Notes: The record is a 357-nucleotide part of an RNA from Halalkaliarchaeum desulfuricum, which matches "Archaeal large subunit ribosomal RNA" in Rfam. A search with the family's covariance model found it, with a score of 2717 bits. The base pairs follow the family's consensus structure, which is taken from published work. NCBI's taxonomy places the organism under Archaea, Methanobacteriota, Halobacteriales, Haloferacaceae, Halalkaliarchaeum.

[Rfam]
RNA sequence: CGGGAGAACCGGCGUUAGGGAAUUCGGCAAGUUAGUCCCGUACCUUCGGAAGAAGGGAUGCCUGCUUUGCAGAGAGCAGGUCGCAGUGACUCGGGCGCUCCGACUGUCUAGUAACAACACAGGUGACCGCAAAUCCGCAAGGACGCGUACGGUCACUGAAUCCUGCCCAGUGCGGGUAUCUGAACACCUGGUACAACAGGACGAAGGACCCGUCAACGGCGGGGGUAACUAUGACCCUCUUAAGGUAGCGUAGUACCUUGCCGCUUCAGUAGCGGCUUGCAUGAAUGGAUCAACGAGAGUGCCACUGUCCCAACGCUGGACCCGGUGAACUGUACGUUCCAGUGCGGAGUCUGGAGA
Numbered sequence: 001c002g003g004g005a006g007a008a009c010c011g012g013c014g015u016u017a018g019g020g021a022a023u024u025c026g027g028c029a030a031g032u033u034a035g036u037c038c039c040g041u042a043c044c045u046u047c048g049g050a051a052g053a054a055g056g057g058a059u060g061c062c063u064g065c066u067u068u069g070c071a072g073a074g075a076g077c078a079g080g081u082c083g084c085a086g087u088g089a090c091u092c093g094g095g096c097g098c099u100c101c102g103a104c105u106g107u108c109u110a111g112u113a114a115c116a117a118c119a120c121a122g123g124u125g126a127c128c129g130c131a132a133a134u135c136c137g138c139a140a141g142g143a144c145g146c147g148u149a150c151g152g153u154c155a156c157u158g159a160a161u162c163c164u165g166c167c168c169a170g171u172g173c174g175g176g177u178a179u180c181u182g183a184a185c186a187c188c189u190g191g192u193a194c195a196a197c198a199g200g201a202c203g204a205a206g207g208a209c210c211c212g213u214c215a216a217c218g219g220c221g222g223g224g225g226u227a228a229c230u231a232u233g234a235c236c237c238u239c240u241u242a243a244g245g246u247a248g249c250g251u252a253g254u255a256c257c258u259u260g261c262c263g264c265u266u267c268a269g270u271a272g273c274g275g276c277u278u279g280c281a282u283g284a285a286u287g288g289a290u291c292a293a294c295g296a297g298a299g300u301g302c303c304a305c306u307g308u309c310c311c312a313a314c315g316c317u318g319g320a321c322c323c324g325g326u327g328a329a330c331u332g333u334a335c336g337u338u339c340c341a342g343u344g345c346g347g348a349g350u351c352u353g354g355a356g357a
Stems, first nucleotide, its partner, number of pairs: 001324004009319008018310003035059005044049001060081009082086001094303007101295002105119003122157008130147001134143003160290004165220003170217002172213005179208003187200004221239006240244001260276006338355005